[Rfam]
RNA sequence: CCAAUGAGCCGCCGGAUCCCCUAGUGAGGAGGCCGGGACCGCCGGAUCCGGUGACCCCGGUCUCCUCGCCGGCGGAUCCGGCGCCCAGA
Numbered sequence: 001c002c003a004a005u006g007a008g009c010c011g012c013c014g015g016a017u018c019c020c021c022u023a024g025u026g027a028g029g030a031g032g033c034c035g036g037g038a039c040c041g042c043c044g045g046a047u048c049c050g051g052u053g054a055c056c057c058c059g060g061u062c063u064c065c066u067c068g069c070c071g072g073c074g075g076a077u078c079c080g081g082c083g084c085c086c087a088g089a
Stems, first nucleotide, its partner, number of pairs: 002088001006086001008084002011082009021072002024069014040053005

The record is an 89-nucleotide RNA from Oryza barthii, which matches "MIR1846 microRNA precursor family" in Rfam. Rfam 15.1 lists 66 matches to the family in 8 species. A reference for the family is Xue et al. (2009), "Characterization and expression profiles of miRNAs in rice seeds", Nucleic Acids Res.